Shown here is an 80-nucleotide RNA from Alligator mississippiensis, a member of the family "mir-203 microRNA precursor family". The family has 32 seed sequences and 1,049 matches in Rfam 15.1. The base pairs follow the family's consensus structure, which was predicted with RNAalifold. The match comes from Rfam's covariance-model search (93 bits). The source organism's lineage runs through Eukaryota, Metazoa, Vertebrata, Dipnotetrapodomorpha and Alligator. Rfam links the family to the GO terms miRNA-mediated post-transcriptional gene silencing and RISC complex.
RNA sequence: GCCUCGCGGGUGCAGUGGUUCUUAACAGUUCAACAGUUCUUUAGGCUAAUUGUGAAAUGUUUAGGACCACUUGACCCGCG
Numbered sequence: 001g002c003c004u005c006g007c008g009g010g011u012g013c014a015g016u017g018g019u020u021c022u023u024a025a026c027a028g029u030u031c032a033a034c035a036g037u038u039c040u041u042u043a044g045g046c047u048a049a050u051u052g053u054g055a056a057a058u059g060u061u062u063a064g065g066a067c068c069a070c071u072u073g074a075c076c077c078g079c080g
Stems, first nucleotide, its partner, number of pairs: 014071006021064002024061004029056004